[Rfam]
RNA sequence: GACUCUGUAACCUCCUUGCAUGCGGGAGGGGCUGGGGUGUCCGAGCGGCGGGGGUGUGGACCAGCGAGAGUUCUGCUGCGUUGACUUGGUGUUCUGCUUGGCCGUGCGUCGGUUCCAUCGCGAGGGCGCCACUGUAGAGAGGCGUCCUCGAGCCGUUAAAGCUGAGGAAACGGGUCAGGCCGGAGACGGAGCAACCCACCUCGCGCGCGUCGCCGUUGCAGAAGCACACCGAGGAGCAAGUCAGAUCUCUU
Numbered sequence: 001g002a003c004u005c006u007g008u009a010a011c012c013u014c015c016u017u018g019c020a021u022g023c024g025g026g027a028g029g030g031g032c033u034g035g036g037g038u039g040u041c042c043g044a045g046c047g048g049c050g051g052g053g054g055u056g057u058g059g060a061c062c063a064g065c066g067a068g069a070g071u072u073c074u075g076c077u078g079c080g081u082u083g084a085c086u087u088g089g090u091g092u093u094c095u096g097c098u099u100g101g102c103c104g105u106g107c108g109u110c111g112g113u114u115c116c117a118u119c120g121c122g123a124g125g126g127c128g129c130c131a132c133u134g135u136a137g138a139g140a141g142g143c144g145u146c147c148u149c150g151a152g153c154c155g156u157u158a159a160a161g162c163u164g165a166g167g168a169a170a171c172g173g174g175u176c177a178g179g180c181c182g183g184a185g186a187c188g189g190a191g192c193a194a195c196c197c198a199c200c201u202c203g204c205g206c207g208c209g210u211c212g213c214c215g216u217u218g219c220a221g222a223a224g225c226a227c228a229c230c231g232a233g234g235a236g237c238a239a240g241u242c243a244g245a246u247c248u249c250u251u
Stems, first nucleotide, its partner, number of pairs: 011029006066251005072245004085233008093222005100214003103209007110155006122149009132139002156160001164202004172197004180189003
Protozoan signal recognition particle RNA: a 251-nucleotide RNA from Trypanosoma conorhini. A search with the family's covariance model found it, with a score of 114 bits. Lineage of the source: Eukaryota > Euglenozoa > Metakinetoplastina > Trypanosomatidae > Trypanosoma.